Rfam assigns this 109-nucleotide RNA from Arctia plantaginis to the family "mir-277 microRNA precursor family". For this family Rfam cites "MicroRNAs of Bombyx mori identified by Solexa sequencing" (Liu et al., BMC Genomics, 2010). Rfam links the family to the GO terms RISC complex and miRNA-mediated post-transcriptional gene silencing.
RNA sequence: UACGCUCCGGAGUUCGUUCCAGGAGUGCGUUUGCAAAGCACUCGACAAGUUUGCGUUAUUGCAAAGUUGACACUGUAAAUGCACUAUCUGGUACGACACCCCGGAGCGU
Numbered sequence: 001u002a003c004g005c006u007c008c009g010g011a012g013u014u015c016g017u018u019c020c021a022g023g024a025g026u027g028c029g030u031u032u033g034c035a036a037a038g039c040a041c042u043c044g045a046c047a048a049g050u051u052u053g054c055g056u057u058a059u060u061g062c063a064a065a066g067u068u069g070a071c072a073c074u075g076u077a078a079a080u081g082c083a084c085u086a087u088c089u090g091g092u093a094c095g096a097c098a099c100c101c102c103g104g105a106g107c108g109u
Base pairs, nucleotide, nucleotide: 008103009102010101015095016094017093019091020090021089022088023087025084027082028081029080030079031078032077033076034075035074